[Rfam]
RNA sequence: UGGAACAAACCCGUAGAACCGAACUUGUGUGGCUUCGGUGCUGCAGUCACAAGUUUGCAUCUAUGGGUAUGUGCCGU
Numbered sequence: 001u002g003g004a005a006c007a008a009a010c011c012c013g014u015a016g017a018a019c020c021g022a023a024c025u026u027g028u029g030u031g032g033c034u035u036c037g038g039u040g041c042u043g044c045a046g047u048c049a050c051a052a053g054u055u056u057g058c059a060u061c062u063a064u065g066g067g068u069a070u071g072u073g074c075c076g077u
Stems, first nucleotide, its partner, number of pairs: 002075002005072003010067003015062003020057010

The record is a 77-nucleotide RNA sequence from Candidula unifasciata, which matches "mir-10 microRNA precursor family" in Rfam. A reference for the family is Lee and Ambros (2001), "An extensive class of small RNAs in Caenorhabditis elegans", Science. Rfam links the family to the GO terms miRNA-mediated post-transcriptional gene silencing and RISC complex.